[Rfam]
RNA sequence: UGCAGAGUAGGAAUUGAAGCGUUAAGUGUUUGGUGAACAGGGAGUUGUCAUCGAAACGAAAGAAGUAACUUAUAUCGUUAUUUUUGCGAUUUCUUUUCCGCAUCCCGCUGCU
Dot-bracket structure: .((((....((((..(((((((...((.((((((((...[[[.[...))))))))))...(((((((((.......)))))))))))).))))..)))).].]]]..)))).
This 112-nucleotide sequence from Granulicatella balaenopterae belongs to the Rfam family "THF (Tetrahydrofolate) riboswitch aptamer". Rfam 15.1 lists 747 matches to the family in 747 species. It scores 80 bits against the family's covariance model.